[Rfam]
The family of this 95-nucleotide sequence is "Plastid-rps12 3UTR RNA".

RNA sequence: GUUGCUGUUGGUACAAACCCAAUCACUUCCAUUUUUCAUUUAAGAUGAAAAAGAAUUCCCCAUUGGUAGCAAAUGGUAUUCAUUAAGCAGGGAAA
Numbered sequence: 001g002u003u004g005c006u007g008u009u010g011g012u013a014c015a016a017a018c019c020c021a022a023u024c025a026c027u028u029c030c031a032u033u034u035u036u037c038a039u040u041u042a043a044g045a046u047g048a049a050a051a052a053g054a055a056u057u058c059c060c061c062a063u064u065g066g067u068a069g070c071a072a073a074u075g076g077u078a079u080u081c082a083u084u085a086a087g088c089a090g091g092g093a094a095a
Stems, first nucleotide, its partner, number of pairs: 008022004058092003062083002065080003069077002
About this RNA: The base pairs follow the family's consensus structure, which was predicted with LocARNA. A reference for the family is Richter et al. (2023), "Retrograde signaling in plants: A critical review focusing on the GUN pathway and beyond", Plant Commun. By type it is a cis-regulatory element.